[Rfam]
RNA sequence: GAACAGCAGGCCCUUGACCGGGCCCUACCAGUAGAACUCUGUUGUAAAUAACACUAAAUUAUUAUUUAUUUAAAUACUAUUAUCUAUUUAUUUAUUUAUUUAUUGAAUGAGCAAGUAUUGGUGCAAACUACCUCACGUUACCACACUACACUCAUUUUUAACAGCACUUU
Number, nucleotide and partner (000 for none) at each position: 001g000002a000003a000004c000005a026006g025007c000008a000009g000010g000011c000012c022013c021014u020015u000016g000017a000018c000019c000020g014021g013022g012023c000024c000025c006026u005027a000028c000029c000030a104031g103032u102033a101034g100035a099036a000037c000038u000039c000040u094041g093042u000043u000044g091045u090046a089047a088048a087049u086050a085051a000052c000053a000054c000055u082056a000057a081058a000059u000060u076061a075062u074063u073064a000065u000066u000067u000068a000069u000070u000071u000072a000073a063074a062075u061076a060077c000078u000079a000080u000081u057082a055083u000084c000085u050086a049087u048088u047089u046090a045091u044092u000093u041094a040095u000096u000097u000098a000099u035100u034101u033102a032103u031104u030105g157106a156107a155108u154109g153110a152111g151112c000113a000114a147115g146116u000117a000118u000119u143120g142121g141122u140123g139124c000125a000126a000127a138128c137129u000130a000131c000132c000133u000134c000135a000136c000137g128138u127139u123140a122141c121142c120143a119144c000145a000146c115147u114148a000149c000150a000151c111152u110153c109154a108155u107156u106157u105158u000159u000160a000161a000162c000163a000164g000165c000166a000167c000168u000169u000170u000
RNA: Pestivirus 3' UTR SLIV, SLIII and SLII classical swine fever virus
Organism: Orthopestivirus suis